[Rfam]
RNA: Ribosomal S15 leader
Organism: Xenorhabdus innexi
RNA sequence: AUGAGUGGCUGAAUUAGAGAUCGGCACUCAUCAUUUUUAAACUAUAUUUGGAGUUAUACUAUGUCUCUAAGUACUGAAGCAAAAGCGCAGAUUAUCGCUGAUUUCGGCCGUGGCGCU
Numbered sequence: 001a002u003g004a005g006u007g008g009c010u011g012a013a014u015u016a017g018a019g020a021u022c023g024g025c026a027c028u029c030a031u032c033a034u035u036u037u038u039a040a041a042c043u044a045u046a047u048u049u050g051g052a053g054u055u056a057u058a059c060u061a062u063g064u065c066u067c068u069a070a071g072u073a074c075u076g077a078a079g080c081a082a083a084a085g086c087g088c089a090g091a092u093u094a095u096c097g098c099u100g101a102u103u104u105c106g107g108c109c110g111u112g113g114c115g116c117u
Stems, first nucleotide, its partner, number of pairs: 008025005047071007